RNA sequence: ACUCAGGCACGAUCGGUGGCCGCCUUAAAUAAUGGCCAUGCAGAAGCGACCUGAAGUUCAAUCCUGAGGGA
Numbered sequence: 001a002c003u004c005a006g007g008c009a010c011g012a013u014c015g016g017u018g019g020c021c022g023c024c025u026u027a028a029a030u031a032a033u034g035g036c037c038a039u040g041c042a043g044a045a046g047c048g049a050c051c052u053g054a055a056g057u058u059c060a061a062u063c064c065u066g067a068g069g070g071a
Base pairs, nucleotide, nucleotide: 001057002056003055004053005052006051007050013044014043016041017040018039020035021034

The record is a 71-nucleotide RNA sequence from Corynebacterium kalinowskii, which matches "L31-Corynebacteriaceae ribosomal protein leader" in Rfam.
NCBI's taxonomy places the organism under Bacteria, Actinomycetota, Actinomycetes, Mycobacteriales, Corynebacterium.
Its Rfam clan is "Ribosomal Protein L31 Leader clan".
A search with the family's covariance model found it, with a score of 60 bits.
The family's RNA type in Rfam is cis-regulatory leader.